[Rfam]
RNA sequence: AUUCUAGUGCACGGGUUUUACGCAUAUCAGUGAGGAUUCGUCCGAGAUUGCGUUUUUGCUAGUUGAAAACUACAUACCUGACCACUCCAUGCGGGCUUCGGCUUACAUGGGAAUUUUUGGAACCAAAAGAUCUCAUUGAGGAUUUUUG
Numbered sequence: 001a002u003u004c005u006a007g008u009g010c011a012c013g014g015g016u017u018u019u020a021c022g023c024a025u026a027u028c029a030g031u032g033a034g035g036a037u038u039c040g041u042c043c044g045a046g047a048u049u050g051c052g053u054u055u056u057u058g059c060u061a062g063u064u065g066a067a068a069a070c071u072a073c074a075u076a077c078c079u080g081a082c083c084a085c086u087c088c089a090u091g092c093g094g095g096c097u098u099c100g101g102c103u104u105a106c107a108u109g110g111g112a113a114u115u116u117u118u119g120g121a122a123c124c125a126a127a128a129g130a131u132c133u134c135a136u137u138g139a140g141g142a143u144u145u146u147u148g
Base pairs, nucleotide, nucleotide: 020053021052022051023050024049026048027047028046034043035042036041086111087110088109089108090107091106093104094103095102096101124148125147126146127145128144129143
Shown here is a 148-nucleotide RNA sequence from Pyricularia oryzae, a member of the family "U4 spliceosomal RNA". It is annotated as a spliceosomal small nuclear RNA.